[Rfam]
RNA sequence: UGGCACCCAGCGUGGGGCCAGAGAACGGGGGAUCCAGUGAAGAAUGCUGCUGGGGUACCCAAUAAAAUAAAAUAGAAAAAAGAGGAAUGCAUCUGAUGUGAACGUGCCAUCUUUCCUGUACCUCGGUGAGUUGAGCAGCGAUUAUGGGACAGCGCAUUAGCUAGCAUGAGUUAUUUGUACAAGGUCUUAAAGAAACUUUACAGGCACGAGGGGUAAAGGUCACAGUCAAACAGUUUUUAAAAUUUUUUGAUUGUAUUAAAGAUCUCUGCCCUU
Numbered sequence: 001u002g003g004c005a006c007c008c009a010g011c012g013u014g015g016g017g018c019c020a021g022a023g024a025a026c027g028g029g030g031g032a033u034c035c036a037g038u039g040a041a042g043a044a045u046g047c048u049g050c051u052g053g054g055g056u057a058c059c060c061a062a063u064a065a066a067a068u069a070a071a072a073u074a075g076a077a078a079a080a081a082g083a084g085g086a087a088u089g090c091a092u093c094u095g096a097u098g099u100g101a102a103c104g105u106g107c108c109a110u111c112u113u114u115c116c117u118g119u120a121c122c123u124c125g126g127u128g129a130g131u132u133g134a135g136c137a138g139c140g141a142u143u144a145u146g147g148g149a150c151a152g153c154g155c156a157u158u159a160g161c162u163a164g165c166a167u168g169a170g171u172u173a174u175u176u177g178u179a180c181a182a183g184g185u186c187u188u189a190a191a192g193a194a195a196c197u198u199u200a201c202a203g204g205c206a207c208g209a210g211g212g213g214u215a216a217a218g219g220u221c222a223c224a225g226u227c228a229a230a231c232a233g234u235u236u237u238u239a240a241a242a243u244u245u246u247u248u249g250a251u252u253g254u255a256u257u258a259a260a261g262a263u264c265u266c267u268g269c270c271c272u273u
Base pairs, nucleotide, nucleotide: 006031007030008029012026013025035049036048037047038046082124083123085121095111096110097109098108131152132151133150136148139146140145157200159198160196162194207249208248209247210246211245212244213243214242217235218234220232258273259272261270263268

A member of the RNA family "Mason-Pfizer monkey virus packaging signal" from Heterocephalus glaber, 273 nucleotides long.
Taxonomically the source falls in Heterocephalus (Eukaryota, Craniata, Vertebrata, Theria).
A search with the family's covariance model found it, with a score of 95 bits.
A reference for the family is Mustafa et al. (2004), "Mutational analysis of the predicted secondary RNA structure of the Mason-Pfizer monkey virus packaging signal", Virus Res.
Gene Ontology term of the family: viral genome packaging.
About the family: This family represents a group of sequences that are related to the Mason-Pfizer monkey virus (MPMV) packaging signal.